[Rfam]
RNA sequence: CAGACAGAUGCCUUGGGAAACUACAGUUAAUCCGCGUGUCGCAGGUUCGAAUCCUGCCCCGCUCCAAGCGGGUAGCUCAGUUGGUAGAGCAUCGGCUGUUUCCCAAAAACCUAGCUGCCCGCCG
Numbered sequence: 001c002a003g004a005c006a007g008a009u010g011c012c013u014u015g016g017g018a019a020a021c022u023a024c025a026g027u028u029a030a031u032c033c034g035c036g037u038g039u040c041g042c043a044g045g046u047u048c049g050a051a052u053c054c055u056g057c058c059c060c061g062c063u064c065c066a067a068g069c070g071g072g073u074a075g076c077u078c079a080g081u082u083g084g085u086a087g088a089g090c091a092u093c094g095g096c097u098g099u100u101u102c103c104c105a106a107a108a109a110c111c112u113a114g115c116u117g118c119c120c121g122c123c124g
Stems, first nucleotide, its partner, number of pairs: 003119001005117003013106001015103001017102004024094001034093001041057005048084001058072006075090004
Description:
A member of the RNA family "Y RNA-like" from Neisseria elongata, 124 nucleotides long. It scores 76 bits against the family's covariance model. Taxonomically the source falls in Neisseria elongata subsp. glycolytica (Bacteria, Pseudomonadota, Neisseria, Neisseria elongata). The family's consensus secondary structure is taken from published work. The family has 6 seed sequences and 124 matches in Rfam 15.1. About the family: In Deinococcus radiodurans Rsr is tethered via Y RNA to the exoribonuclease PNPase and channels single-stranded RNA into the PNPase cavity. Rsr and Y RNA enhance degradation of structured RNAs by PNPase.